[Rfam]
RNA sequence: GCCGAAGUAGCGGAACUGGUAAACGCCCGAGACUUAAAAUCCCGUGUUCAGCAAUGGACGUGCAGGUUCGAUUCCUGCCUUCGGCA
Numbered sequence: 001g002c003c004g005a006a007g008u009a010g011c012g013g014a015a016c017u018g019g020u021a022a023a024c025g026c027c028c029g030a031g032a033c034u035u036a037a038a039a040u041c042c043c044g045u046g047u048u049c050a051g052c053a054a055u056g057g058a059c060g061u062g063c064a065g066g067u068u069c070g071a072u073u074c075c076u077g078c079c080u081u082c083g084g085c086a
Base pairs, nucleotide, nucleotide: 001085002084003083004082005081006080007079010026011025012024028044029043031041032040062078063077064076065075066074

A member of the RNA family "tRNA" from Chlorobaculum tepidum, 86 nucleotides long. It scores 59 bits against the family's covariance model. NCBI's taxonomy places the organism under Bacteria, Pseudomonadati, Chlorobiales, Chlorobiaceae, Chlorobaculum tepidum. Transfer RNA (tRNA) molecules are approximately 80 nucleotides in length. It is annotated as a transfer RNA.